[Rfam]
RNA sequence: GCCGCGAUCCGGGCCCCUCUGGCGGCCGGUGGUUGUCCAGGGCCCUGCCCAGCCAGCCACCCUCCGUGAUGUCGGAUCAUUCCA
Numbered sequence: 001g002c003c004g005c006g007a008u009c010c011g012g013g014c015c016c017c018u019c020u021g022g023c024g025g026c027c028g029g030u031g032g033u034u035g036u037c038c039a040g041g042g043c044c045c046u047g048c049c050c051a052g053c054c055a056g057c058c059a060c061c062c063u064c065c066g067u068g069a070u071g072u073c074g075g076a077u078c079a080u081u082c083c084a
Stems, first nucleotide, its partner, number of pairs: 006078007022067004028061008

terC RNA: an 84-nucleotide sequence from Roseococcus suduntuyensis.